Mammalian CPEB3 ribozyme: an 83-nucleotide RNA sequence from Crocodylus porosus. The organism belongs to Crocodylus, within Eukaryota. The base pairs follow the family's consensus structure, which is taken from published work.
RNA sequence: CCGACACAAGUGGGAGUCAUAGCAGGAGCAUUCAUGUUGCAACCUCUGUCAGGUAAUGUGUGUUAAUACCUGCAAAUUCUGUU
Numbered sequence: 001c002c003g004a005c006a007c008a009a010g011u012g013g014g015a016g017u018c019a020u021a022g023c024a025g026g027a028g029c030a031u032u033c034a035u036g037u038u039g040c041a042a043c044c045u046c047u048g049u050c051a052g053g054u055a056a057u058g059u060g061u062g063u064u065a066a067u068a069c070c071u072g073c074a075a076a077u078u079c080u081g082u083u
Stems, first nucleotide, its partner, number of pairs: 013046002016043002021083007028040003050072006